RNA sequence: GGCAGUAGGUCUGCCUAAGUCGGUCACCAGAAAUUGUCUUCAAACCGCCUCAGGCGUCUGUUAUUAAGAGUAACGGUCGUGAGUACGUGAAGAAAAUCAGCUUAAGCUGGUGAGG
Numbered sequence: 001g002g003c004a005g006u007a008g009g010u011c012u013g014c015c016u017a018a019g020u021c022g023g024u025c026a027c028c029a030g031a032a033a034u035u036g037u038c039u040u041c042a043a044a045c046c047g048c049c050u051c052a053g054g055c056g057u058c059u060g061u062u063a064u065u066a067a068g069a070g071u072a073a074c075g076g077u078c079g080u081g082a083g084u085a086c087g088u089g090a091a092g093a094a095a096a097u098c099a100g101c102u103u104a105a106g107c108u109g110g111u112g113a114g115g
Stems, first nucleotide, its partner, number of pairs: 001015005017040003021036001023034002045115002048092001050090003053086001054080002058076002061073004096111006
This 115-nucleotide RNA from Candidatus Phycorickettsia trachydisci belongs to the Rfam family "Group II catalytic intron D1-D4-2". Gene Ontology term of the family: Group II intron splicing. Lineage of the source: Bacteria > Pseudomonadota > Rickettsiales > Rickettsiaceae > Candidatus Phycorickettsia. About the family: Group II introns are found in rRNA, tRNA and mRNA of organelles in fungi, plants and protists, and also in mRNA in bacteria. The match comes from Rfam's covariance-model search (56 bits). For this family Rfam cites "The ins and outs of group II introns" (Bonen and Vogel, Trends Genet, 2001).